[Rfam]
Shown here is an 85-nucleotide RNA sequence from Mesobacillus persicus, a member of the family "c-di-GMP-I riboswitch aptamer". A search with the family's covariance model found it, with a score of 65 bits. Rfam's curators write: GEMM was predicted in a large-scale screen for bacterial structured RNA regulatory elements.
RNA sequence: AACACCUAAAGGCAAAAUCACUGAAAGGUGAUGACGCAAAGCUAUAGGGGCCUCCGCUUAUUAGCAAGGCUAGCCAGUUACCAUC
Numbered sequence: 001a002a003c004a005c006c007u008a009a010a011g012g013c014a015a016a017a018u019c020a021c022u023g024a025a026a027g028g029u030g031a032u033g034a035c036g037c038a039a040a041g042c043u044a045u046a047g048g049g050g051c052c053u054c055c056g057c058u059u060a061u062u063a064g065c066a067a068g069g070c071u072a073g074c075c076a077g078u079u080a081c082c083a084u085c
Stems, first nucleotide, its partner, number of pairs: 012037002017032006040079004047075002049071003056065003